A member of the RNA family "int-alpA RNA" from Acinetobacter sp. RUH 2624, 65 nucleotides long. The family's consensus secondary structure is taken from published work.
[Rfam]
RNA sequence: GCUAAGCCUAGCUCGACGGAGCGAAAGUCGGAUACCCAAUCUGAUUGGCUUAGCUCCUAUUUGGG
Number, nucleotide and partner (000 for none) at each position: 001g054002c053003u052004a051005a050006g049007c048008c047009u000010a000011g022012c021013u020014c019015g000016a000017c000018g000019g014020a013021g012022c011023g000024a000025a000026a000027g000028u044029c043030g042031g041032a040033u000034a000035c065036c064037c063038a062039a061040u032041c031042u030043g029044a028045u000046u000047g008048g007049c006050u005051u004052a003053g002054c001055u000056c000057c000058u000059a000060u000061u039062u038063g037064g036065g035
Source information:
The family's RNA type in Rfam is small RNA. The source organism's lineage runs through Bacteria, Pseudomonadota, Gammaproteobacteria, Moraxellaceae and Acinetobacter. Rfam's curators write: Acidobacteria (1 example), Planctomycetes (1 example), Proteobacteria.